[Rfam]
Annotation
A member of the RNA family "mir-541 microRNA precursor family" from Cavia porcellus, 84 nucleotides long. The organism belongs to Cavia, within Eukaryota. A reference for the family is Sewer et al. (2005), "Identification of clustered microRNAs using an ab initio prediction method", BMC Bioinformatics.
RNA sequence: AUGUCAGAGAGAGGAUUCUGCUGCCGGUCCCACUCCAAAGUUUAUAAAAUGGGUGGUGGGCACAGAAUCCGGACUCUGCCUGUG
Numbered sequence: 001a002u003g004u005c006a007g008a009g010a011g012a013g014g015a016u017u018c019u020g021c022u023g024c025c026g027g028u029c030c031c032a033c034u035c036c037a038a039a040g041u042u043u044a045u046a047a048a049a050u051g052g053g054u055g056g057u058g059g060g061c062a063c064a065g066a067a068u069c070c071g072g073a074c075u076c077u078g079c080c081u082g083u084g
Stems, first nucleotide, its partner, number of pairs: 001083003005078005013070008022062004027057001030056006